[Rfam]
RNA sequence: UGGCGGGGGGGCACACAAGGGGUGGAGCCUGCGGCUCAAUUGGAGUCAACGCCGGGAACCUCCACCGGGAGCGACAGCAGAAUGAAGGCCAGGCUAAUGACCUUGCCAGACGCGCUGAGGGGAGGUGCACGGCCGUCGCCAGCUCGUGCUGUGAAGUGUCCUGUUAAGUCAGGCAACGAGCGAGACCCUCGCCCUUAGUUGCCAUCACAUAGGAGACUAUGGGGGCACACUAAGGGGACUGCCGCCGCUAAGGCGGAGGAAGGGGAGGGCCACGGCAGGUCAGCAUGCCCCUAAACUCCCGGGCUGCACGCGGGCUACAAUGGUGGGGACAGCGGGUUCCGACCCACGAAAGGGGAAGGCAAUCCCUGAAACCCCACCGUAGUUGGGAUUGAGGGCUGCAACUCGCCCUCAUGAACCUGGAAUCCCUAGUAACCGCGCGUCAUCAUCGCGCGGUGAAUACGUCCCUGCCCCUUGUACACACUGCCCGUCGCUCCAUCCGAGAGAGGGGAAGGUGAGGCCCCUUCCCAUAGGGAAGAGGUCGAACCUUCCCCUCUCGAGGAGGGAGAAGUCGUAACAAGG
Numbered sequence: 001u002g003g004c005g006g007g008g009g010g011g012c013a014c015a016c017a018a019g020g021g022g023u024g025g026a027g028c029c030u031g032c033g034g035c036u037c038a039a040u041u042g043g044a045g046u047c048a049a050c051g052c053c054g055g056g057a058a059c060c061u062c063c064a065c066c067g068g069g070a071g072c073g074a075c076a077g078c079a080g081a082a083u084g085a086a087g088g089c090c091a092g093g094c095u096a097a098u099g100a101c102c103u104u105g106c107c108a109g110a111c112g113c114g115c116u117g118a119g120g121g122g123a124g125g126u127g128c129a130c131g132g133c134c135g136u137c138g139c140c141a142g143c144u145c146g147u148g149c150u151g152u153g154a155a156g157u158g159u160c161c162u163g164u165u166a167a168g169u170c171a172g173g174c175a176a177c178g179a180g181c182g183a184g185a186c187c188c189u190c191g192c193c194c195u196u197a198g199u200u201g202c203c204a205u206c207a208c209a210u211a212g213g214a215g216a217c218u219a220u221g222g223g224g225g226c227a228c229a230c231u232a233a234g235g236g237g238a239c240u241g242c243c244g245c246c247g248c249u250a251a252g253g254c255g256g257a258g259g260a261a262g263g264g265g266a267g268g269g270c271c272a273c274g275g276c277a278g279g280u281c282a283g284c285a286u287g288c289c290c291c292u293a294a295a296c297u298c299c300c301g302g303g304c305u306g307c308a309c310g311c312g313g314g315c316u317a318c319a320a321u322g323g324u325g326g327g328g329a330c331a332g333c334g335g336g337u338u339c340c341g342a343c344c345c346a347c348g349a350a351a352g353g354g355g356a357a358g359g360c361a362a363u364c365c366c367u368g369a370a371a372c373c374c375c376a377c378c379g380u381a382g383u384u385g386g387g388a389u390u391g392a393g394g395g396c397u398g399c400a401a402c403u404c405g406c407c408c409u410c411a412u413g414a415a416c417c418u419g420g421a422a423u424c425c426c427u428a429g430u431a432a433c434c435g436c437g438c439g440u441c442a443u444c445a446u447c448g449c450g451c452g453g454u455g456a457a458u459a460c461g462u463c464c465c466u467g468c469c470c471c472u473u474g475u476a477c478a479c480a481c482u483g484c485c486c487g488u489c490g491c492u493c494c495a496u497c498c499g500a501g502a503g504a505g506g507g508g509a510a511g512g513u514g515a516g517g518c519c520c521c522u523u524c525c526c527a528u529a530g531g532g533a534a535g536a537g538g539u540c541g542a543a544c545c546u547u548c549c550c551c552u553c554u555c556g557a558g559g560a561g562g563g564a565g566a567a568g569u570c571g572u573a574a575c576a577a578g579g
Stems, first nucleotide, its partner, number of pairs: 001478002003475003007472007015462002019426005024318001026316008034307002040055004065302007075117004080111001087107003091103003121291002124289004131284001132280003135276004142181006148157003160173004187268004192236007202225002206223001208221005239259002242256005322378007334366003339359002343355003347352001385416001390411007432454008481578001483575001486571002489568001491565004496560003501555013516540004521535005

Archaeal small subunit ribosomal RNA: a 579-nucleotide part of an RNA from Caldisphaera lagunensis. Pairs were carried over by alignment from the consensus structure, which is taken from published work.